[Rfam]
The record is a 93-nucleotide sequence from Sorghum bicolor, which matches "MIR5387 microRNA precursor family" in Rfam. The family's consensus secondary structure was predicted with RNAalifold.
RNA sequence: UGGUAACACGAACCGGUGCUAAAGGGUCUCCGCUCGACAGCACCUGUCAGUAGCCAUUGGGCAGGACCCUUUAGCACCGGUUCGUGUUACGAA
Numbered sequence: 001u002g003g004u005a006a007c008a009c010g011a012a013c014c015g016g017u018g019c020u021a022a023a024g025g026g027u028c029u030c031c032g033c034u035c036g037a038c039a040g041c042a043c044c045u046g047u048c049a050g051u052a053g054c055c056a057u058u059g060g061g062c063a064g065g066a067c068c069c070u071u072u073a074g075c076a077c078c079g080g081u082u083c084g085u086g087u088u089a090c091g092a093a
Base pairs, nucleotide, nucleotide: 003090004089005088006087007086008085009084010083011082012081013080014079015078016077017076018075019074020073021072022071023070024069025068026067027066029065030064034060035059036058037057044050045049
The family has 2 seed sequences and 1,029 matches in Rfam 15.1. NCBI's taxonomy places the organism under Eukaryota, Streptophyta, Tracheophyta, commelinids, Sorghum.